A member of the RNA family "L31-Actinobacteria ribosomal protein leader" from Bifidobacterium boum, 45 nucleotides long. Lineage of the source: Bacteria > Actinomycetes > Bifidobacteriales > Bifidobacterium > Bifidobacterium boum. The family's consensus secondary structure is taken from published work.

RNA sequence: GAGGUUCCGGUUCACGCCCGCCAUAGGGGCUGGCGACCCGGGUCC
Numbered sequence: 001g002a003g004g005u006u007c008c009g010g011u012u013c014a015c016g017c018c019c020g021c022c023a024u025a026g027g028g029g030c031u032g033g034c035g036a037c038c039c040g041g042g043u044c045c
Stems, first nucleotide, its partner, number of pairs: 003045002007041004015035004020030003